[Rfam]
RNA sequence: AUGCAUCCAGUAGGAAUUGAACCUGCAAGUUUGCCAAUUAUGAGUUGGGCGCUUUACCAAUUCAGCCAUGCAUGC
Numbered sequence: 001a002u003g004c005a006u007c008c009a010g011u012a013g014g015a016a017u018u019g020a021a022c023c024u025g026c027a028a029g030u031u032u033g034c035c036a037a038u039u040a041u042g043a044g045u046u047g048g049g050c051g052c053u054u055u056a057c058c059a060a061u062u063c064a065g066c067c068a069u070g071c072a073u074g075c
Stems, first nucleotide, its partner, number of pairs: 003075004008070001010026005040069003044066006
A member of the RNA family "Plastid-ycf2 5UTR RNA" from Vanilla planifolia, 75 nucleotides long. A reference for the family is Richter et al. (2023), "Retrograde signaling in plants: A critical review focusing on the GUN pathway and beyond", Plant Commun.